[Rfam]
RNA: Mammalian CPEB3 ribozyme
Organism: Alligator mississippiensis
RNA sequence: AUAGCAAGUUUGAGGCUAUAGCAGAAGUACCCAUGGCGCAGCCUUGUCAGAUUCCACCAAAUCUGUGAAUUCUGCU
Numbered sequence: 001a002u003a004g005c006a007a008g009u010u011u012g013a014g015g016c017u018a019u020a021g022c023a024g025a026a027g028u029a030c031c032c033a034u035g036g037c038g039c040a041g042c043c044u045u046g047u048c049a050g051a052u053u054c055c056a057c058c059a060a061a062u063c064u065g066u067g068a069a070u071u072c073u074g075c076u
Stems, first nucleotide, its partner, number of pairs: 013044005020076007027039002048065006